[Rfam]
RNA sequence: UUGUUUCUUUCUUUGGUUAUCUAGCUGUAUGAGUAUUAUUUGCCUUCAUAAAGCUAGGUUACCGAAGUUACUAAUGA
Numbered sequence: 001u002u003g004u005u006u007c008u009u010u011c012u013u014u015g016g017u018u019a020u021c022u023a024g025c026u027g028u029a030u031g032a033g034u035a036u037u038a039u040u041u042g043c044c045u046u047c048a049u050a051a052a053g054c055u056a057g058g059u060u061a062c063c064g065a066a067g068u069u070a071c072u073a074a075u076g077a
Stems, first nucleotide, its partner, number of pairs: 001077005008070001011067007019059008028050006
Background
A member of the RNA family "mir-9/mir-79 microRNA precursor family" from Nezara viridula, 77 nucleotides long. The source organism's lineage runs through Eukaryota, Bilateria, Pentatomomorpha, Pentatominae and Nezara. Its family is annotated with RISC complex and miRNA-mediated post-transcriptional gene silencing in the Gene Ontology.